[Rfam]
Shown here is a 130-nucleotide sequence from Melopsittacus undulatus, a member of the family "Small nucleolar RNA SNORA44". For this family Rfam cites "RNomics: an experimental approach that identifies 201 candidates for novel, small, non-messenger RNAs in mouse" (Huttenhofer et al., EMBO J, 2001). The family has 27 seed sequences and 1,056 matches in Rfam 15.1. The family's consensus secondary structure was predicted with PFOLD.
Nucleotides: 130
Stems, first nucleotide, its partner, number of pairs: 013044001018040006070123006085110002087103004
Number, partner (000 for none) and nucleotide at each position: 001000a002000u003000g004000c005000a006000u007000g008000u009000u010000g011000a012000u013044c014000c015000a016000a017000g018040a019039g020038c021037u022036g023035u024000g025000g026000c027000u028000c029000a030000g031000u032000g033000c034000a035023g036022u037021a038020g039019c040018u041000a042000c043000a044013g045000g046000u047000u048000u049000c050000c051000a052000g053000u054000a055000a056000c057000a058000u059000g060000c061000c062000a063000g064000a065000g066000c067000a068000a069000u070123g071122g072121a073120a074119g075118g076000u077000c078000u079000u080000u081000g082000g083000c084000u085110g086109c087103u088102g089101g090100g091000c092000u093000u094000c095000u096000c097000c098000u099000g100090c101089c102088c103087a104000u105000u106000g107000c108000u109086g110085u111000u112000a113000c114000u115000c116000g117000c118075c119074c120073u121072u122071c123070c124000u125000a126000c127000g128000g129000a130000c